The family of this 88-nucleotide sequence from Desulfuromusa kysingii is "c-di-GMP-I-GGC riboswitch aptamer". Its Rfam clan is "c-di-GMP_I riboswitch clan". The source organism's lineage runs through Bacteria, Pseudomonadati, Thermodesulfobacteriota, Desulfuromonadales and Desulfuromusa.
RNA sequence: CCAGCUAAUGCCAAACCUGUUGAAAAGCAGAGACGGAAAGCUCCGGGUCUUUCCUCUAAAACUUCGCAAGAUAGCCGAGCUACCUAAG
Dot-bracket structure: (.((......((....(((((....)))))...[))..((((.((((((((................))))).])))))))..))..)
Numbered sequence: 001c002c003a004g005c006u007a008a009u010g011c012c013a014a015a016c017c018u019g020u021u022g023a024a025a026a027g028c029a030g031a032g033a034c035g036g037a038a039a040g041c042u043c044c045g046g047g048u049c050u051u052u053c054c055u056c057u058a059a060a061a062c063u064u065c066g067c068a069a070g071a072u073a074g075c076c077g078a079g080c081u082a083c084c085u086a087a088g
Stems, first nucleotide, its partner, number of pairs: 001088001003085002011036002017030005034074001039081004044077003047072005